[Rfam]
RNA sequence: AAUAAGUGCAGUUUUAGCACUGUUCAUAUUCAACGUUUGACCGCUCGUCUUAUUUGAAAAACAAUUAUAAUUAGUAUUUUUAUUGUUGUUAGAUGAUAAUACAUGAAUAGUAUUUAUGUGUGACUAAUAUUUUUAUUUUUGUUCAUAAAAUUUUUAAAUACGAAUGGUCAAAAUACUGAACACGAAUAUCUAUAGCUAUAUUUAUU
Number, nucleotide and partner (000 for none) at each position: 001a000002a000003u000004a000005a000006g000007u000008g000009c000010a000011g000012u000013u000014u000015u000016a000017g000018c000019a000020c000021u000022g000023u000024u000025c000026a000027u000028a000029u180030u179031c178032a177033a000034c000035g000036u172037u171038u170039g169040a168041c167042c166043g165044c000045u163046c162047g161048u160049c000050u000051u000052a159053u158054u000055u000056g000057a000058a000059a000060a000061a000062c000063a000064a000065u000066u000067a000068u000069a000070a000071u000072u000073a000074g000075u000076a000077u000078u000079u000080u000081u000082a000083u000084u000085g000086u000087u000088g000089u000090u000091a000092g000093a000094u000095g000096a000097u000098a000099a000100u000101a000102c000103a000104u000105g000106a000107a000108u000109a000110g000111u000112a000113u000114u000115u000116a000117u000118g000119u000120g000121u000122g000123a000124c000125u000126a000127a000128u000129a000130u000131u000132u000133u000134u000135a000136u000137u000138u000139u000140u000141g000142u000143u000144c000145a000146u000147a000148a000149a000150a000151u000152u000153u000154u000155u000156a000157a000158a053159u052160a048161c047162g046163a045164a000165u043166g042167g041168u040169c039170a038171a037172a036173a000174u000175a000176c000177u032178g031179a030180a029181c000182a000183c000184g000185a000186a000187u000188a000189u000190c000191u000192a000193u000194a000195g000196c000197u000198a000199u000200a000201u000202u000203u000204a000205u000206u000
RNA: MIR812 microRNA precursor family